A member of the RNA family "mir-399 microRNA precursor family" from Salvia splendens, 91 nucleotides long. It scores 61 bits against the family's covariance model. Pairs were carried over by alignment from the consensus structure, which was predicted with PFOLD.
RNA sequence: AUUUGUGUUACAGGGCAUUACUCUUCUGGCAGUUGCACAAGCGAAUGCUUAAUGAGCUACUGCCAAGGGAGAUUUGCCCUGCAAUGCAAUU
Number, nucleotide and partner (000 for none) at each position: 001a000002u000003u000004u000005g087006u086007g085008u084009u083010a000011c081012a080013g079014g078015g077016c076017a074018u000019u000020a000021c071022u070023c069024u068025u000026c000027u065028g064029g063030c062031a061032g060033u059034u000035g057036c000037a000038c000039a000040a000041g000042c000043g000044a000045a000046u000047g000048c000049u000050u000051a000052a000053u000054g000055a000056g000057c035058u000059a033060c032061u031062g030063c029064c028065a027066a000067g000068g024069g023070a022071g021072a000073u000074u017075u000076g016077c015078c014079c013080u012081g011082c000083a009084a008085u007086g006087c005088a000089a000090u000091u000